The record is a 123-nucleotide RNA from Rhipicephalus microplus, which matches "U5 spliceosomal RNA" in Rfam. The organism belongs to Boophilus, within Eukaryota. A search with the family's covariance model found it, with a score of 73 bits. U5 RNA is a component of both types of known spliceosome. The precise function of this molecule is unknown, though it is known that the 5' loop is required for splice site selection and p220 binding, and that both the 3' stem-loop and the Sm site are important for Sm protein binding and cap methylation. The family's RNA type in Rfam is spliceosomal small nuclear RNA.
RNA sequence: UCGCUCAGGUCCUUCCUCAGUUUACCGCAACAAUCUUUCGCCUUUUACUAAAGAUUGCCGUGGGGAAGGACACCCUAAUUAACCUCUUGGCCAAUUUUUGGGAGGCCUUACCUGUUCGGGCGA
Numbered sequence: 001u002c003g004c005u006c007a008g009g010u011c012c013u014u015c016c017u018c019a020g021u022u023u024a025c026c027g028c029a030a031c032a033a034u035c036u037u038u039c040g041c042c043u044u045u046u047a048c049u050a051a052a053g054a055u056u057g058c059c060g061u062g063g064g065g066a067a068g069g070a071c072a073c074c075c076u077a078a079u080u081a082a083c084c085u086c087u088u089g090g091c092c093a094a095u096u097u098u099u100g101g102g103a104g105g106c107c108u109u110a111c112c113u114g115u116u117c118g119g120g121c122g123a
Base pairs, nucleotide, nucleotide: 003084005082009071010070011069012068013067014066015065016064017063018062019061031057032056033055034054035053036052037051038050105121106120107119108118
Dot-bracket structure: ..(.(...(((((((((((...........((((((((...........))))))))...)))))))))))..........).)....................((((.........))))..